[Rfam]
RNA sequence: UGCACUGUGUGGUAUCUGCAGCCAGCUGGUCCAUCAGCUGGUUUGUUCAAAAGUCAGUGCUAAAGAAAGUCUGCAUCUGGCAUCGUUGGUCUCCAUCCAGCCUGUGGUUGGAGUCCUGGUAUUGGUGCUGAAACAAAG
Numbered sequence: 001u002g003c004a005c006u007g008u009g010u011g012g013u014a015u016c017u018g019c020a021g022c023c024a025g026c027u028g029g030u031c032c033a034u035c036a037g038c039u040g041g042u043u044u045g046u047u048c049a050a051a052a053g054u055c056a057g058u059g060c061u062a063a064a065g066a067a068a069g070u071c072u073g074c075a076u077c078u079g080g081c082a083u084c085g086u087u088g089g090u091c092u093c094c095a096u097c098c099a100g101c102c103u104g105u106g107g108u109u110g111g112a113g114u115c116c117u118g119g120u121a122u123u124g125g126u127g128c129u130g131a132a133a134c135a136a137a138g
Stems, first nucleotide, its partner, number of pairs: 002060006014054002017051001018046004023041001024039005064126001067123002070119002073116001079108001081106003
The family of this 138-nucleotide RNA sequence from Nothobranchius furzeri is "Small nucleolar RNA SNORA8". Rfam 15.1 lists 1,490 matches to the family in 610 species. Gene Ontology terms of the family: nucleolus and RNA processing. About the family: ACA8 is a member of the H/ACA class of snoRNA that guide the sites of modification of uridines to pseudouridines.